[Rfam]
RNA: RAGATH-10 RNA
RNA sequence: GAAACCUCAUCUUCGAUCUAUGCCAUACGGGUGUCGAUCAGUGCUUUUUAGCACGAGCGUCCGCUCGGAUGAGGAGAAGGU
Numbered sequence: 001g002a003a004a005c006c007u008c009a010u011c012u013u014c015g016a017u018c019u020a021u022g023c024c025a026u027a028c029g030g031g032u033g034u035c036g037a038u039c040a041g042u043g044c045u046u047u048u049u050a051g052c053a054c055g056a057g058c059g060u061c062c063g064c065u066c067g068g069a070u071g072a073g074g075a076g077a078a079g080g081u
Stems, first nucleotide, its partner, number of pairs: 005074008016038003020034005041054005055066004